[Rfam]
RNA sequence: UGGCUUCAAGUCAGGCGAGACCACCCGCUGAAUUUAAGCAUAUUACUAAGCGGAGGAAAAGAAAACAACCGUGAUUCCUUUGGUAGCGGCGAGCGACCAAGGAAAAGCCCAGGCUUGAAAUCCGAGGCCCCCGGCCCUCCGAAUUGUAGUCUGAAAAGGAAGCGUUCUCUGUGACGGGCGCCGCCUUAAGUCCACUGGAAAGUGGCGGCAGAGAGGGUGACACCCCCGUCGGGCGACGACCCGUCACUCCACGAGACGCAUCCGAAGAGUCGGGUUGCUUGGGAGUGCAGCCCCAACAUGGGUGGUAAGCUCCAUCCAAGGCUAAAUACGGCCAGGUUUCCGAUAGCGAACAAGUACCGCGAGGGAAAGAUGAAAAGAACUUUGGAAAGAGAGUAAAAAGUGCUUGAAAUCGUCAGGAGGAUAAGCGCAUGAGCCCAAGCAAACCUGCGGGCCCCGUUCGCGCGGGGCCCGGAGGUACGCAGCGCCGGUCGAUGCCGCGGGAAAAGGAGCUCGCUCCCACCGCGGCGGAGACCGAGGAUGACCCUCACGGGUCGGCGCUGGCGAAACGGGCUGAUGCGACCCGUCUUGAAACACGG
Numbered sequence: 001u002g003g004c005u006u007c008a009a010g011u012c013a014g015g016c017g018a019g020a021c022c023a024c025c026c027g028c029u030g031a032a033u034u035u036a037a038g039c040a041u042a043u044u045a046c047u048a049a050g051c052g053g054a055g056g057a058a059a060a061g062a063a064a065a066c067a068a069c070c071g072u073g074a075u076u077c078c079u080u081u082g083g084u085a086g087c088g089g090c091g092a093g094c095g096a097c098c099a100a101g102g103a104a105a106a107g108c109c110c111a112g113g114c115u116u117g118a119a120a121u122c123c124g125a126g127g128c129c130c131c132c133g134g135c136c137c138u139c140c141g142a143a144u145u146g147u148a149g150u151c152u153g154a155a156a157a158g159g160a161a162g163c164g165u166u167c168u169c170u171g172u173g174a175c176g177g178g179c180g181c182c183g184c185c186u187u188a189a190g191u192c193c194a195c196u197g198g199a200a201a202g203u204g205g206c207g208g209c210a211g212a213g214a215g216g217g218u219g220a221c222a223c224c225c226c227c228g229u230c231g232g233g234c235g236a237c238g239a240c241c242c243g244u245c246a247c248u249c250c251a252c253g254a255g256a257c258g259c260a261u262c263c264g265a266a267g268a269g270u271c272g273g274g275u276u277g278c279u280u281g282g283g284a285g286u287g288c289a290g291c292c293c294c295a296a297c298a299u300g301g302g303u304g305g306u307a308a309g310c311u312c313c314a315u316c317c318a319a320g321g322c323u324a325a326a327u328a329c330g331g332c333c334a335g336g337u338u339u340c341c342g343a344u345a346g347c348g349a350a351c352a353a354g355u356a357c358c359g360c361g362a363g364g365g366a367a368a369g370a371u372g373a374a375a376a377g378a379a380c381u382u383u384g385g386a387a388a389g390a391g392a393g394u395a396a397a398a399a400g401u402g403c404u405u406g407a408a409a410u411c412g413u414c415a416g417g418a419g420g421a422u423a424a425g426c427g428c429a430u431g432a433g434c435c436c437a438a439g440c441a442a443a444c445c446u447g448c449g450g451g452c453c454c455c456g457u458u459c460g461c462g463c464g465g466g467g468c469c470c471g472g473a474g475g476u477a478c479g480c481a482g483c484g485c486c487g488g489u490c491g492a493u494g495c496c497g498c499g500g501g502a503a504a505a506g507g508a509g510c511u512c513g514c515u516c517c518c519a520c521c522g523c524g525g526c527g528g529a530g531a532c533c534g535a536g537g538a539u540g541a542c543c544c545u546c547a548c549g550g551g552u553c554g555g556c557g558c559u560g561g562c563g564a565a566a567c568g569g570g571c572u573g574a575u576g577c578g579a580c581c582c583g584u585c586u587u588g589a590a591a592c593a594c595g596g
Stems, first nucleotide, its partner, number of pairs: 024055001025053005035042002065072002076103005086094002106323004112151004118145002121142002124139004158263002162259003166256004171247007179238002182235004190206001192205004209213001216226002272293007300317005357364002380391004426578005432572005442476001444475003448471010480560011581596004
Dot-bracket structure: .......................((((((.....((....))......))))).).........((....))...(((((.....((.....))....)))))..((((..((((..((.((.((((........)))).)).))..))))......((..(((.((((.(((((((.((.((((....(.((((......)))))..(...)..((.......)).....)))).))..))))))).....)))))))..))........(((((((........)))))))......(((((........)))))..)))).................................((....))...............((((....))))..................................(((((.(((((.....(.(((.((((((((((....)))))))))).))))...(((((((((((...........................................................))))))))))).......))))).)))))..((((........))))
RNA: Eukaryotic large subunit ribosomal RNA, nucleotides 1 to 596